[Rfam]
RNA: Class I RNA from Dictyostelium
RNA sequence: GUUGACCUUACAGCAAUCUAAUCACAAAUUUUUACUUCACAAAAAAAAAACCCCUUCGUCAACUG
Number, nucleotide and partner (000 for none) at each position: 001g063002u062003u061004g060005a059006c058007c000008u000009u000010a000011c000012a000013g000014c000015a000016a000017u000018c000019u000020a000021a000022u000023c000024a000025c000026a000027a000028a000029u000030u000031u000032u000033u000034a000035c000036u000037u000038c000039a000040c000041a000042a000043a000044a000045a000046a000047a000048a000049a000050a000051c000052c000053c000054c000055u000056u000057c000058g006059u005060c004061a003062a002063c001064u000065g000